[Rfam]
RNA: Small nucleolar RNA snoR8a
Nucleotides: 087
Stems, first nucleotide, its partner, number of pairs: 003087002006085002
Number, partner (000 for none) and nucleotide at each position: 001000a002000u003087a004086g005000u006085u007084g008000c009000g010000a011000u012000g013000a014000u015000u016000g017000u018000a019000a020000a021000a022000g023000u024000a025000a026000u027000u028000c029000c030000u031000c032000g033000u034000a035000c036000u037000g038000a039000a040000a041000g042000c043000c044000a045000u046000u047000g048000g049000c050000u051000u052000g053000a054000u055000a056000g057000a058000c059000u060000c061000a062000c063000a064000u065000u066000a067000c068000a069000c070000c071000c072000a073000u074000a075000g076000a077000a078000u079000a080000u081000g082000a083000g084007c085006a086004u087003u